RNA sequence: GCCCUGGAGACUGAAGUCCUCUAAUUUAUCCACAGGACAGGUACAGCGGCACUGCGAACUACUCCCACACCGCCCAACCCAUGUGCCUCAACGCUGACCUGGAGGGACCACCUCAGGAGGUGAGAGGGGAGUUCAGUCUCCACGGCCCGUUCAAUCCUUGGCCUCU
Dot-bracket structure: ((..(((((((((((..(((((..((((((..(((.......(..(((((.....................)))..........)).).....)))..((.((((.....)))).)).)))))))))))..)))))))))))..))....................
A member of the RNA family "TUC338" from Todus mexicanus, 166 nucleotides long. Rfam classes the family as a cis-regulatory element. Taxonomically the source falls in Todus (Eukaryota, Eumetazoa, Teleostomi, Amniota). The family has 34 seed sequences and 75,615 matches in Rfam 15.1. The base pairs follow the family's consensus structure, which was predicted with WAR.